[Rfam]
RNA: Eukaryotic small subunit ribosomal RNA, nucleotides 22 to 617
RNA sequence: AGUCAUAUGCUUGUCUCAAAGAUUAAGCCAUGCAUGUGUAAGUAUAAACUGCUUUGUACUGUGAAACUGCGAAUGGCUCAUUAAAUCAGUAAUAGUUUAUUUGAUGGUACCUUACUACUCGGAUAACCGUAGUAAUUCUAGAGCUAAUACGUGCAAAGAGUCCCGACCCCUGGAAGGGAUGCACUUACUAGAUUCAAGGCCGAUGCGGGCUCGCCCGUAUUCUCGGUGAUUCAUGGUAACUUGUCGAAUCGCGUGGCCCUCGUGCCGGCGAUGCAUCAUUCAAAUUUCUGCCCUAUCAACUUUCGAUUGUAGGAUAGAGGCCUACAAUGGUGGUGACGGGUAACGGGGAAUUAGGGUUCGAUUCCGGAGAGGGAGCCUGAGAAACGGCUACCACAUCCAAGGAAGGCAGCAGGCGCGCAAAUUACCCAAUCCUGACACGGGGAGGUAGUGACAAUAAAUAACAAUACCGGGCUCUUACGAGUCUGGUAAUUGGAAUGAGUACAAUCUAAAUCCCUUAACGAGGAUCCAUUGGAGGGCAAGUCUGGUGCCAGCAGCCGCGGUAAUUCCAGCUCCAAUAGCGUAUAUUUAAGUUGUUG
Numbered sequence: 001a002g003u004c005a006u007a008u009g010c011u012u013g014u015c016u017c018a019a020a021g022a023u024u025a026a027g028c029c030a031u032g033c034a035u036g037u038g039u040a041a042g043u044a045u046a047a048a049c050u051g052c053u054u055u056g057u058a059c060u061g062u063g064a065a066a067c068u069g070c071g072a073a074u075g076g077c078u079c080a081u082u083a084a085a086u087c088a089g090u091a092a093u094a095g096u097u098u099a100u101u102u103g104a105u106g107g108u109a110c111c112u113u114a115c116u117a118c119u120c121g122g123a124u125a126a127c128c129g130u131a132g133u134a135a136u137u138c139u140a141g142a143g144c145u146a147a148u149a150c151g152u153g154c155a156a157a158g159a160g161u162c163c164c165g166a167c168c169c170c171u172g173g174a175a176g177g178g179a180u181g182c183a184c185u186u187a188c189u190a191g192a193u194u195c196a197a198g199g200c201c202g203a204u205g206c207g208g209g210c211u212c213g214c215c216c217g218u219a220u221u222c223u224c225g226g227u228g229a230u231u232c233a234u235g236g237u238a239a240c241u242u243g244u245c246g247a248a249u250c251g252c253g254u255g256g257c258c259c260u261c262g263u264g265c266c267g268g269c270g271a272u273g274c275a276u277c278a279u280u281c282a283a284a285u286u287u288c289u290g291c292c293c294u295a296u297c298a299a300c301u302u303u304c305g306a307u308u309g310u311a312g313g314a315u316a317g318a319g320g321c322c323u324a325c326a327a328u329g330g331u332g333g334u335g336a337c338g339g340g341u342a343a344c345g346g347g348g349a350a351u352u353a354g355g356g357u358u359c360g361a362u363u364c365c366g367g368a369g370a371g372g373g374a375g376c377c378u379g380a381g382a383a384a385c386g387g388c389u390a391c392c393a394c395a396u397c398c399a400a401g402g403a404a405g406g407c408a409g410c411a412g413g414c415g416c417g418c419a420a421a422u423u424a425c426c427c428a429a430u431c432c433u434g435a436c437a438c439g440g441g442g443a444g445g446u447a448g449u450g451a452c453a454a455u456a457a458a459u460a461a462c463a464a465u466a467c468c469g470g471g472c473u474c475u476u477a478c479g480a481g482u483c484u485g486g487u488a489a490u491u492g493g494a495a496u497g498a499g500u501a502c503a504a505u506c507u508a509a510a511u512c513c514c515u516u517a518a519c520g521a522g523g524a525u526c527c528a529u530u531g532g533a534g535g536g537c538a539a540g541u542c543u544g545g546u547g548c549c550a551g552c553a554g555c556c557g558c559g560g561u562a563a564u565u566c567c568a569g570c571u572c573c574a575a576u577a578g579c580g581u582a583u584a585u586u587u588a589a590g591u592u593g594u595u596g
Stems, first nucleotide, its partner, number of pairs: 001586003005583007014456001016454001020449001021416001027414003031411003036070002041068003048062002077369003087290003092285002096283002102278004118153001120151002127143001130140003160180005167173002185239006199227004207216003249271004254267004292340003299331003306328008344366004348359004371392002374389003394405001396403002422447001424446003430442005462492003465488010499519002501516001503515001529575006542569004551558002